[Rfam]
Description: MIR6152 microRNA precursor family: an 82-nucleotide RNA from Nicotiana sylvestris. Its family is annotated with RISC complex and miRNA-mediated post-transcriptional gene silencing in the Gene Ontology. The source organism's lineage runs through Eukaryota, Embryophyta, Spermatophyta, Nicotianeae and Nicotiana.
RNA sequence: UGGACAGAUUAUUAUAUUCGAUUGUGUUCACGACGUGAAAUAGGGAAAACGGAAAGUGAAUCAAUUAACAUAAUAGACUUCU
Numbered sequence: 001u002g003g004a005c006a007g008a009u010u011a012u013u014a015u016a017u018u019c020g021a022u023u024g025u026g027u028u029c030a031c032g033a034c035g036u037g038a039a040a041u042a043g044g045g046a047a048a049a050c051g052g053a054a055a056g057u058g059a060a061u062c063a064a065u066u067a068a069c070a071u072a073a074u075a076g077a078c079u080u081c082u
Stems, first nucleotide, its partner, number of pairs: 002081003009076007017068002020066002023063002026061006034051003